[Rfam]
RNA sequence: AUAUAGUGAUGGUAAUAUUUUUCAUCAACAGAGUUCUAGUGAGUGUUGAUACAAUGGGUCUGGGUAA
Numbered sequence: 001a002u003a004u005a006g007u008g009a010u011g012g013u014a015a016u017a018u019u020u021u022u023c024a025u026c027a028a029c030a031g032a033g034u035u036c037u038a039g040u041g042a043g044u045g046u047u048g049a050u051a052c053a054a055u056g057g058g059u060c061u062g063g064g065u066a067a
Stems, first nucleotide, its partner, number of pairs: 002066003008026004

Rfam assigns this 67-nucleotide RNA sequence from Octodon degus to the family "Small nucleolar RNA SNORD56". The source organism's lineage runs through Eukaryota, Metazoa, Eumetazoa, Rodentia and Octodon. Its family is annotated with nucleolus and RNA processing in the Gene Ontology. Pairs were carried over by alignment from the consensus structure, which was predicted with PFOLD. It is annotated as a C/D-box small nucleolar RNA.